[Rfam]
RNA: DUF3800-I RNA
Nucleotides: 133
Stems, first nucleotide, its partner, number of pairs: 006025001008023004029096006040088003043065003069085005098123010
Number, partner (000 for none) and nucleotide at each position: 001000u002000a003000c004000a005000u006025a007000c008023a009022c010021g011020c012000a013000g014000u015000g016000a017000c018000g019000a020011g021010c022009g023008u024000u025006u026000c027000a028000a029096c030095a031094u032093c033092a034091a035000g036000g037000a038000u039000a040088c041087u042086c043065a044064u045063a046000c047000a048000a049000u050000u051000g052000u053000c054000g055000u056000a057000a058000a059000a060000u061000a062000a063045u064044a065043u066000u067000a068000a069085c070084c071083g072082u073081a074000a075000u076000c077000u078000a079000a080000g081073u082072a083071c084070g085069g086042g087041a088040g089000c090000c091034u092033u093032g094031a095030u096029g097000g098123g099122a100121c101120a102119c103118c104117u105116a106115u107114u108000u109000u110000a111000a112000u113000u114107a115106a116105u117104a118103g119102g120101u121100g122099u123098u124000u125000u126000u127000u128000u129000u130000a131000u132000u133000g